[Rfam]
RNA sequence: AGGCCCAGAGAGAGAAGCAGGGUCUGAUCCAUAGCCUCCAUGGCAGCUUUUGAUUAGUCCUUGCCUCUUUCUUUCUCUCGG
Numbered sequence: 001a002g003g004c005c006c007a008g009a010g011a012g013a014g015a016a017g018c019a020g021g022g023u024c025u026g027a028u029c030c031a032u033a034g035c036c037u038c039c040a041u042g043g044c045a046g047c048u049u050u051u052g053a054u055u056a057g058u059c060c061u062u063g064c065c066u067c068u069u070u071c072u073u074u075c076u077c078u079c080g081g
Base pairs, nucleotide, nucleotide: 008073009072010071011070012069013068014067015066017064018063019062020061022059024057025056026055027054028053029052033048034047035046

Rfam assigns this 81-nucleotide RNA from Myotis myotis to the family "mir-574 microRNA precursor family". Rfam links the family to the GO terms RISC complex and miRNA-mediated post-transcriptional gene silencing. NCBI's taxonomy places the organism under Eukaryota, Opisthokonta, Sarcopterygii, Laurasiatheria, Myotis. The base pairs follow the family's consensus structure, which was predicted with RNAalifold. A search with the family's covariance model found it, with a score of 82 bits. The literature on the family includes a 2007 paper in Cancer Res by Lui et al., "Patterns of known and novel small RNAs in human cervical cancer".